[Rfam]
RNA sequence: AUCGGUUUGGAAGUCAGACCUUAUGAAAGCAGUUUUAGUAAAGCAGUCCUCAUUUAAAGCGUUAUCUUAGAUACCCUUCUUCUUGAGCCUCUUCUAAGUGCCCAGUAAGUAUUCUCUGCAAUACAGACCUUGUAUGCCACGCUAGCUGGCUCACCAAUUAAGAAGGAAGUUACUAUGUCUAACAAAAUGACUGGUUUAGUAAAAUGGUUUAACGCUGAGAAAGGUUUCGGCUUCAUUUCUCCGGAAGAUGGCAGCAAAGAUGUAUUCGUACACUUCUCUGCAAUCCAGAGCAACGAUUUCAAAACCCUUGAUGAAGGCCAGAAAGUAGAGUUCUCUAUCGAGAACGGUGCUAAAGGUCCGUCAGCAACUAACGUUGUUGCGCUGUAAGGCGUUUUAGCCUGCAUCAAGCCUUGCGAUAGCGAUGAAGGUUUUA
Numbered sequence: 001a002u003c004g005g006u007u008u009g010g011a012a013g014u015c016a017g018a019c020c021u022u023a024u025g026a027a028a029g030c031a032g033u034u035u036u037a038g039u040a041a042a043g044c045a046g047u048c049c050u051c052a053u054u055u056a057a058a059g060c061g062u063u064a065u066c067u068u069a070g071a072u073a074c075c076c077u078u079c080u081u082c083u084u085g086a087g088c089c090u091c092u093u094c095u096a097a098g099u100g101c102c103c104a105g106u107a108a109g110u111a112u113u114c115u116c117u118g119c120a121a122u123a124c125a126g127a128c129c130u131u132g133u134a135u136g137c138c139a140c141g142c143u144a145g146c147u148g149g150c151u152c153a154c155c156a157a158u159u160a161a162g163a164a165g166g167a168a169g170u171u172a173c174u175a176u177g178u179c180u181a182a183c184a185a186a187a188u189g190a191c192u193g194g195u196u197u198a199g200u201a202a203a204a205u206g207g208u209u210u211a212a213c214g215c216u217g218a219g220a221a222a223g224g225u226u227u228c229g230g231c232u233u234c235a236u237u238u239c240u241c242c243g244g245a246a247g248a249u250g251g252c253a254g255c256a257a258a259g260a261u262g263u264a265u266u267c268g269u270a271c272a273c274u275u276c277u278c279u280g281c282a283a284u285c286c287a288g289a290g291c292a293a294c295g296a297u298u299u300c301a302a303a304a305c306c307c308u309u310g311a312u313g314a315a316g317g318c319c320a321g322a323a324a325g326u327a328g329a330g331u332u333c334u335c336u337a338u339c340g341a342g343a344a345c346g347g348u349g350c351u352a353a354a355g356g357u358c359c360g361u362c363a364g365c366a367a368c369u370a371a372c373g374u375u376g377u378u379g380c381g382c383u384g385u386a387a388g389g390c391g392u393u394u395u396a397g398c399c400u401g402c403a404u405c406a407a408g409c410c411u412u413g414c415g416a417u418a419g420c421g422a423u424g425a426a427g428g429u430u431u432u433a
Stems, first nucleotide, its partner, number of pairs: 004020006029242001031240002043233001045232004049224002054222002062218003066214001068212001070210002073208003079177001081175001084172002090166005098124003136150003179194003247339005259267002272326004277322004281317001284311002287308002345360003349357003362384003365379004388399003406431007414421002
RNA: cspA thermoregulator
Organism: Pantoea alhagi